Rfam assigns this 122-nucleotide sequence from Clostridium vincentii to the family "Ribosomal protein L20 leader". It is annotated as a cis-regulatory leader. The family's consensus secondary structure was predicted with CMfinder. The organism belongs to Clostridium, within Bacteria.
RNA sequence: UAAGUUAAGAAGGAACAGCCGUUUCUCACCUACAACGCCAAUUGGCAGUUAGUAUGGUUAUUUAUCACGAUAAUUUUGUUGAUAAUAUAGGACGGCAUAAUAUGCCGUCCUUUUAUUAUAUG
Numbered sequence: 001u002a003a004g005u006u007a008a009g010a011a012g013g014a015a016c017a018g019c020c021g022u023u024u025c026u027c028a029c030c031u032a033c034a035a036c037g038c039c040a041a042u043u044g045g046c047a048g049u050u051a052g053u054a055u056g057g058u059u060a061u062u063u064a065u066c067a068c069g070a071u072a073a074u075u076u077u078g079u080u081g082a083u084a085a086u087a088u089a090g091g092a093c094g095g096c097a098u099a100a101u102a103u104g105c106c107g108u109c110c111u112u113u114u115a116u117u118a119u120a121u122g
Stems, first nucleotide, its partner, number of pairs: 011026006028058003034050003037046002091109008